[Rfam]
RNA sequence: UAAUGAAAAUGAAAAGAGAGAUAUGCUUCAACAUACCUCUCUGAUGCAGAGCCGUUUAAGACGGUGACCAUGUUAAUUAUUUAAAA
Numbered sequence: 001u002a003a004u005g006a007a008a009a010u011g012a013a014a015a016g017a018g019a020g021a022u023a024u025g026c027u028u029c030a031a032c033a034u035a036c037c038u039c040u041c042u043g044a045u046g047c048a049g050a051g052c053c054g055u056u057u058a059a060g061a062c063g064g065u066g067a068c069c070a071u072g073u074u075a076a077u078u079a080u081u082u083a084a085a086a
Base pairs, nucleotide, nucleotide: 022035023034024033025032051065052064053063054062055061056060
RNA: RNA anti-toxin A